Annotation
A member of the RNA family "Mason-Pfizer monkey virus packaging signal" from Nannospalax galili, 282 nucleotides long. Rfam 15.1 lists 2,921 matches to the family in 53 species. Taxonomically the source falls in Nannospalax (Eukaryota, Bilateria, Vertebrata, Teleostomi). This family represents a group of sequences that are related to the Mason-Pfizer monkey virus (MPMV) packaging signal. The packaging signal is located in the 5' UTR and is required for specific RNA encapsidation. Gene Ontology term of the family: viral genome packaging.
[Rfam]
RNA sequence: UGGCACCCAACGUGGGGCCUGGAUACUGGGGCCACAUCAUGAGGGAGACAAUGGAAAAAGGAAGGAGUGCACUCGCUAAAUCUCAAGGAAUUCUGAGACAUGCCAUGGGAGCCUGCCAUGACCGAACCGAAAGUAAGUCAAUCCGUCCAAUCAUGGGGCAAGAAUUGAGCCAGCAUCAGAUUUAUGUCAAGCAAUUGAGAGAGGCUCUAAAGAUACGAGUAGUAAAGUUUAGGACUGUGGAUUUAUUUCAUUUUUUUGAUUUUGUAAAGGACAUUUGUCCCU
Numbered sequence: 001u002g003g004c005a006c007c008c009a010a011c012g013u014g015g016g017g018c019c020u021g022g023a024u025a026c027u028g029g030g031g032c033c034a035c036a037u038c039a040u041g042a043g044g045g046a047g048a049c050a051a052u053g054g055a056a057a058a059a060g061g062a063a064g065g066a067g068u069g070c071a072c073u074c075g076c077u078a079a080a081u082c083u084c085a086a087g088g089a090a091u092u093c094u095g096a097g098a099c100a101u102g103c104c105a106u107g108g109g110a111g112c113c114u115g116c117c118a119u120g121a122c123c124g125a126a127c128c129g130a131a132a133g134u135a136a137g138u139c140a141a142u143c144c145g146u147c148c149a150a151u152c153a154u155g156g157g158g159c160a161a162g163a164a165u166u167g168a169g170c171c172a173g174c175a176u177c178a179g180a181u182u183u184a185u186g187u188c189a190a191g192c193a194a195u196u197g198a199g200a201g202a203g204g205c206u207c208u209a210a211a212g213a214u215a216c217g218a219g220u221a222g223u224a225a226a227g228u229u230u231a232g233g234a235c236u237g238u239g240g241a242u243u244u245a246u247u248u249c250a251u252u253u254u255u256u257u258g259a260u261u262u263u264g265u266a267a268a269g270g271a272c273a274u275u276u277g278u279c280c281c282u
Base pairs, nucleotide, nucleotide: 006031007030008029012026013025014024037051040048091135093133094131101126104120105119106118107117108116142160144158146157147156148155149154166209167208169205170204171203216258217257218256219255221253222252226244227243229241230240267282269280270279271278272277